[Rfam]
RNA sequence: CGCCCGAAUGCAGGAGAGAGGCGCCGCGCUGGCGCCCGCCGAAGGCGCAGGCUCCCAUGAUCGCUCAGGCCGGUGGGCUGGAAUCCCACC
Numbered sequence: 001c002g003c004c005c006g007a008a009u010g011c012a013g014g015a016g017a018g019a020g021g022c023g024c025c026g027c028g029c030u031g032g033c034g035c036c037c038g039c040c041g042a043a044g045g046c047g048c049a050g051g052c053u054c055c056c057a058u059g060a061u062c063g064c065u066c067a068g069g070c071c072g073g074u075g076g077g078c079u080g081g082a083a084u085c086c087c088a089c090c
Stems, first nucleotide, its partner, number of pairs: 006085002009082001011080003020036004038070003041066002045064003051058001
Dot-bracket structure: .....((.(.(((......((((.........)))).(((((..(((...(......)...))))).))).......))).).)).....
A member of the RNA family "Glycine riboswitch aptamer", 90 nucleotides long. The base pairs follow the family's consensus structure. It scores 40 bits against the family's covariance model.